[Rfam]
Shown here is a 61-nucleotide RNA sequence from Levilactobacillus bambusae, a member of the family "Fluoride riboswitch aptamer (crcB RNA motif)". It scores 43 bits against the family's covariance model.
RNA sequence: AAUUAAAUCGGCGAUGGUGUUCGCCGCAAUAUUCGAAAGAAUUGAUGACGCCUACUCGAUC
Numbered sequence: 001a002a003u004u005a006a007a008u009c010g011g012c013g014a015u016g017g018u019g020u021u022c023g024c025c026g027c028a029a030u031a032u033u034c035g036a037a038a039g040a041a042u043u044g045a046u047g048a049c050g051c052c053u054a055c056u057c058g059a060u061c
Base pairs, nucleotide, nucleotide: 010025011024012023013022016052017051018050019049020048021047031042032041033040034039
Lineage of the source: Bacteria > Bacillati > Bacillota > Lactobacillaceae > Levilactobacillus.